[Rfam]
RNA sequence: CAGGGCUAAUCCUCUUUCCUUAACUCAUGCCGCUGUGCCUUUUUCUUUAUUUCACAAUUGUGUGAGUUGAGUACAGAGUGUCAGCCCG
Numbered sequence: 001c002a003g004g005g006c007u008a009a010u011c012c013u014c015u016u017u018c019c020u021u022a023a024c025u026c027a028u029g030c031c032g033c034u035g036u037g038c039c040u041u042u043u044u045c046u047u048u049a050u051u052u053c054a055c056a057a058u059u060g061u062g063u064g065a066g067u068u069g070a071g072u073a074c075a076g077a078g079u080g081u082c083a084g085c086c087c088g
Stems, first nucleotide, its partner, number of pairs: 004086004009081002012078002019071010034056004

The family of this 88-nucleotide RNA from Melopsittacus undulatus is "mir-1426 microRNA precursor family". NCBI's taxonomy places the organism under Eukaryota, Opisthokonta, Vertebrata, Telluraves, Melopsittacus. The match comes from Rfam's covariance-model search (81 bits). The base pairs follow the family's consensus structure, which was predicted with RNAalifold.